[Rfam]
RNA sequence: AGCACCCGGGAUGGGUGGUGGGCUUUUGUGUUCUAACCCUAAAUAAGAAGGGCGUAGGCGCUGUGCUUUUGUUCCCCGCGCGUUGUUUUUCUCGCUGACUUUCAGCGGGCGGGAAAAGCCUCGGCCUAUCGCCGUCUACUGAUAUUUUGCAGCAAACAAAAAAAUGUCAGCCGCUGGCCGCUCGCCCCUCCCGGGAACCUGCGGUGGCUCGCACGCCCAGCCCCGCGCCCUGCCUGGAGGCCGCGGUCGGUUGGGGCUUCUCCGGAGGUUCCCAAUGCCGUCGCGAAGAGUUGGGCUCUGUCAGCCGCGGGUCCCGCGGGUACCAAGGGCGAGGCACGAGCCUCUUGAACGCAGGGAGAGAAAUGGAGCCGUUCCCCACCUCCGUGCACUUCCCUGAGUUGUGGAUGUGCGCCUGGGACUCAGCUCCGACAAGU
Numbered sequence: 001a002g003c004a005c006c007c008g009g010g011a012u013g014g015g016u017g018g019u020g021g022g023c024u025u026u027u028g029u030g031u032u033c034u035a036a037c038c039c040u041a042a043a044u045a046a047g048a049a050g051g052g053c054g055u056a057g058g059c060g061c062u063g064u065g066c067u068u069u070u071g072u073u074c075c076c077c078g079c080g081c082g083u084u085g086u087u088u089u090u091c092u093c094g095c096u097g098a099c100u101u102u103c104a105g106c107g108g109g110c111g112g113g114a115a116a117a118g119c120c121u122c123g124g125c126c127u128a129u130c131g132c133c134g135u136c137u138a139c140u141g142a143u144a145u146u147u148u149g150c151a152g153c154a155a156a157c158a159a160a161a162a163a164a165u166g167u168c169a170g171c172c173g174c175u176g177g178c179c180g181c182u183c184g185c186c187c188c189u190c191c192c193g194g195g196a197a198c199c200u201g202c203g204g205u206g207g208c209u210c211g212c213a214c215g216c217c218c219a220g221c222c223c224c225g226c227g228c229c230c231u232g233c234c235u236g237g238a239g240g241c242c243g244c245g246g247u248c249g250g251u252u253g254g255g256g257c258u259u260c261u262c263c264g265g266a267g268g269u270u271c272c273c274a275a276u277g278c279c280g281u282c283g284c285g286a287a288g289a290g291u292u293g294g295g296c297u298c299u300g301u302c303a304g305c306c307g308c309g310g311g312u313c314c315c316g317c318g319g320g321u322a323c324c325a326a327g328g329g330c331g332a333g334g335c336a337c338g339a340g341c342c343u344c345u346u347g348a349a350c351g352c353a354g355g356g357a358g359a360g361a362a363a364u365g366g367a368g369c370c371g372u373u374c375c376c377c378a379c380c381u382c383c384g385u386g387c388a389c390u391u392c393c394c395u396g397a398g399u400u401g402u403g404g405a406u407g408u409g410c411g412c413c414u415g416g417g418a419c420u421c422a423g424c425u426c427c428g429a430c431a432a433g434u
Stems, first nucleotide, its partner, number of pairs: 005195007013187006020179002023176001065119005077111003081107005094171006100164003198355006211335002214331005222320006229311005242285005248280004253273003287299004366426004371419005384412005391405001393404002
Dot-bracket structure: ....(((((((.((((((.((.(.........................................(((((.......(((.(((((........[[[[[[[[[))))).)))...)))))..........................................]]].]]]]]]....).))..)))))).)))))))..((((((.......((.(((((...((((((.(((((........(((((.((((.(((...............)))...))))))))).((((.....)))).......)))))...))))))......)))))..))..............))))))..........((((.(((((........(((((..(.((........)))..)))))..)))))...))))........

A member of the RNA family "Vertebrate telomerase RNA" from Orycteropus afer, 434 nucleotides long. From the family's description: Telomerase is a ribonucleoprotein reverse transcriptase that synthesises telomeric DNA. Telomerase RNAs differ greatly in sequence and structure between vertebrates, ciliates and yeasts, but they share a 5' pseudoknot structure close to the template sequence. On this family, see Chen et al., Cell 2000: "Secondary structure of vertebrate telomerase RNA". Lineage of the source: Eukaryota > Opisthokonta > Dipnotetrapodomorpha > Tubulidentata > Orycteropus afer. Clan: Telomerase clan. It scores 328 bits against the family's covariance model.